[Rfam]
A member of the RNA family "psbNH RNA", 58 nucleotides long.

RNA sequence: GGGUAAAUUGAAGUCUAGAUACUGUAAGUGCCGAUUCCGUUUCGGGGUCGGUCCUGUC
Numbered sequence: 001g002g003g004u005a006a007a008u009u010g011a012a013g014u015c016u017a018g019a020u021a022c023u024g025u026a027a028g029u030g031c032c033g034a035u036u037c038c039g040u041u042u043c044g045g046g047g048u049c050g051g052u053c054c055u056g057u058c
Stems, first nucleotide, its partner, number of pairs: 027055002030052009
Rfam classes the family as a cis-regulatory element.